[Rfam]
RNA sequence: GCGAUCCUUCGGGGUAGGGUGAAAUUCCCAACCGGCGGUGAUCCGGCUUUUCAGACAGCGAGAGCUCCGGCUCAGCCCAAGAAAUCCGGUCAGUCCGUGACCCGUACGCAAGAGGUUAUGCCUCUGCGGCCGGUGGACCUGGUGUAAUUCCGGGACCGACAGUACAGUCUGGAUGGGAGAAGGAAUCG
Numbered sequence: 001g002c003g004a005u006c007c008u009u010c011g012g013g014g015u016a017g018g019g020u021g022a023a024a025u026u027c028c029c030a031a032c033c034g035g036c037g038g039u040g041a042u043c044c045g046g047c048u049u050u051u052c053a054g055a056c057a058g059c060g061a062g063a064g065c066u067c068c069g070g071c072u073c074a075g076c077c078c079a080a081g082a083a084a085u086c087c088g089g090u091c092a093g094u095c096c097g098u099g100a101c102c103c104g105u106a107c108g109c110a111a112g113a114g115g116u117u118a119u120g121c122c123u124c125u126g127c128g129g130c131c132g133g134u135g136g137a138c139c140u141g142g143u144g145u146a147a148u149u150c151c152g153g154g155a156c157c158g159a160c161a162g163u164a165c166a167g168u169c170u171g172g173a174u175g176g177g178a179g180a181a182g183g184a185a186u187c188g
Stems, first nucleotide, its partner, number of pairs: 003186001005184006017029003031168002033158002035098004102133002138154005160171003